[Rfam]
RNA sequence: UGAGACCCCCAGAUGGCCGCGGCCGCGUCAUUCAUUUGGCAAGGCUGAGGAACUUCCGGGCUCCAUAGAGCACGAUGGCGGAUAACGUCCGCCCAGGGCGACCUGAGAGAUAGCGCAGCAGAGAACAGACCGCCCGUCCUCGACGGGUAAGGGUGAAACGGCGGUGUAAGAGACCACCGGGCCGCUGGCAACAGUCGGCCGCAUGGCAAGCCUCAUCGGGAGCAAGGCCAAGCAGAUGGCGGUAAGGGCUGCUCGCCCGUGCCAUCGGGUAGGCCGCUAGAGCCUGACGGCAACGUCAGGUCGAGAUGGAUGGUCAUCCGCGUGGCGACACGCGACAGAACCCGGGGUAUCGGGGGUCUCACAUC
Number, nucleotide and partner (000 for none) at each position: 001u361002g360003a359004g358005a357006c356007c355008c354009c353010c352011a350012g318013a317014u316015g315016g314017c313018c312019g000020c047021g046022g045023c044024c043025g000026c000027g040028u039029c038030a037031u000032u000033c000034a000035u000036u000037u030038g029039g028040c027041a000042a000043g024044g023045c022046u021047g020048a000049g000050g000051a000052a348053c347054u346055u000056c345057c344058g343059g342060g341061c222062u221063c220064c219065a000066u000067a000068g254069a253070g252071c251072a000073c218074g217075a216076u215077g214078g092079c091080g090081g089082a088083u000084a000085a000086c000087g000088u082089c081090c080091g079092c078093c107094c105095a104096g103097g102098g000099c000100g000101a000102c097103c096104u095105g094106a000107g093108a213109g212110a000111u000112a000113g211114c210115g207116c206117a000118g000119c000120a000121g000122a000123g000124a000125a000126c000127a000128g000129a000130c152131c151132g148133c147134c146135c145136g144137u143138c142139c000140u000141c000142g138143a137144c136145g135146g134147g133148u132149a000150a000151g131152g130153g000154u000155g000156a000157a000158a000159c000160g178161g177162c000163g175164g174165u173166g000167u000168a000169a000170g000171a000172g000173a165174c164175c163176a000177c161178c160179g202180g200181g199182c198183c197184g196185c194186u193187g192188g000189c000190a000191a000192c187193a186194g185195u000196c184197g183198g182199c181200c180201g000202c179203a000204u000205g000206g116207c115208a000209a000210g114211c113212c109213u108214c077215a076216u075217c074218g073219g064220g063221a062222g061223c000224a000225a000226g275227g274228c273229c272230a000231a000232g000233c000234a000235g266236a265237u264238g263239g262240c261241g000242g000243u000244a000245a000246g258247g257248g256249c255250u000251g071252c070253u069254c068255g249256c248257c247258c246259g000260u000261g240262c239263c238264a237265u236266c235267g000268g000269g000270u000271a000272g229273g228274c227275c226276g000277c000278u000279a000280g000281a000282g301283c300284c299285u298286g297287a296288c295289g294290g000291c000292a000293a000294c289295g288296u287297c286298a285299g284300g283301u282302c000303g000304a000305g000306a000307u000308g000309g000310a000311u000312g018313g017314u016315c015316a014317u013318c012319c000320g000321c000322g000323u000324g000325g000326c000327g000328a000329c000330a000331c000332g000333c000334g000335a000336c000337a000338g000339a000340a000341c060342c059343c058344g057345g056346g054347g053348u052349a000350u011351c000352g010353g009354g008355g007356g006357u005358c004359u003360c002361a001362c000363a000364u000365c000
Annotation
Rfam assigns this 365-nucleotide RNA sequence from Bifidobacterium leontopitheci to the family "Bacterial RNase P class A". A reference for the family is Frank and Pace (1998), "Ribonuclease P: unity and diversity in a tRNA processing ribozyme", Annu Rev Biochem.